RNA sequence: UGCUUGAUGAUGACUGUCUCCUAUGAUUGCUUUUGUAACAGCAAAGUGAAUAAAUAAUUUCACCGGCACUGAAAGUA
Numbered sequence: 001u002g003c004u005u006g007a008u009g010a011u012g013a014c015u016g017u018c019u020c021c022u023a024u025g026a027u028u029g030c031u032u033u034u035g036u037a038a039c040a041g042c043a044a045a046g047u048g049a050a051u052a053a054a055u056a057a058u059u060u061c062a063c064c065g066g067c068a069c070u071g072a073a074a075g076u077a
Base pairs, nucleotide, nucleotide: 001077002076003075004074005073
This 77-nucleotide RNA from Sphenodon punctatus belongs to the Rfam family "Small nucleolar RNA SNORD102". The match comes from Rfam's covariance-model search (58 bits). Pairs were carried over by alignment from the consensus structure, which was predicted with PFOLD. The organism belongs to Sphenodon, within Eukaryota. The family has 11 seed sequences and 443 matches in Rfam 15.1. Rfam classes the family as a C/D-box small nucleolar RNA.